[Rfam]
RNA: MIR824 microRNA precursor family
RNA sequence: CUCGAGUUGUCUCUCAUGUCUAGACCAUUUGUGAGAAGGGAUUUACUGUUUGCACCAUUCACCUCACCAAUCUCUAAAUCUGCAAUUAGUAUUAUGCUCAUUCAAGAAAAUUAGCAUCUAGAAAGUUGGUACAUAAAGUGCAUUUAUGACUUUUGCUGAUGCUGUACACAUAUUUUUUUUUUUUGUAGAAUCAGUUCAUGACAAUUUUCCAAAUCAUAUACAGUUUUGGACAUACAUUUUGCCUAAGAAAUGUCAAACUUCUGUCUGGAGUGUUAGAAGGUUUUCAUGAUAGCUCAGAAUUUUAUAGCUUGCCCUACUUAAUUAGCUACAUUAGUUCACUUGUUAAGAAGUUGGGAAGUGGGGGGAGGUGCUGGGUUUCCCUUCUCAUCGAUGGUCUAGAUGUGCGAGGUGACUCUCAUAGUGU
Numbered sequence: 001c002u003c004g005a006g007u008u009g010u011c012u013c014u015c016a017u018g019u020c021u022a023g024a025c026c027a028u029u030u031g032u033g034a035g036a037a038g039g040g041a042u043u044u045a046c047u048g049u050u051u052g053c054a055c056c057a058u059u060c061a062c063c064u065c066a067c068c069a070a071u072c073u074c075u076a077a078a079u080c081u082g083c084a085a086u087u088a089g090u091a092u093u094a095u096g097c098u099c100a101u102u103c104a105a106g107a108a109a110a111u112u113a114g115c116a117u118c119u120a121g122a123a124a125g126u127u128g129g130u131a132c133a134u135a136a137a138g139u140g141c142a143u144u145u146a147u148g149a150c151u152u153u154u155g156c157u158g159a160u161g162c163u164g165u166a167c168a169c170a171u172a173u174u175u176u177u178u179u180u181u182u183u184u185g186u187a188g189a190a191u192c193a194g195u196u197c198a199u200g201a202c203a204a205u206u207u208u209c210c211a212a213a214u215c216a217u218a219u220a221c222a223g224u225u226u227u228g229g230a231c232a233u234a235c236a237u238u239u240u241g242c243c244u245a246a247g248a249a250a251u252g253u254c255a256a257a258c259u260u261c262u263g264u265c266u267g268g269a270g271u272g273u274u275a276g277a278a279g280g281u282u283u284u285c286a287u288g289a290u291a292g293c294u295c296a297g298a299a300u301u302u303u304a305u306a307g308c309u310u311g312c313c314c315u316a317c318u319u320a321a322u323u324a325g326c327u328a329c330a331u332u333a334g335u336u337c338a339c340u341u342g343u344u345a346a347g348a349a350g351u352u353g354g355g356a357a358g359u360g361g362g363g364g365g366a367g368g369u370g371c372u373g374g375g376u377u378u379c380c381c382u383u384c385u386c387a388u389c390g391a392u393g394g395u396c397u398a399g400a401u402g403u404g405c406g407a408g409g410u411g412a413c414u415c416u417c418a419u420a421g422u423g424u
Stems, first nucleotide, its partner, number of pairs: 001423001003421001004415010015404015031388011052371005064362001068360002073357001075355001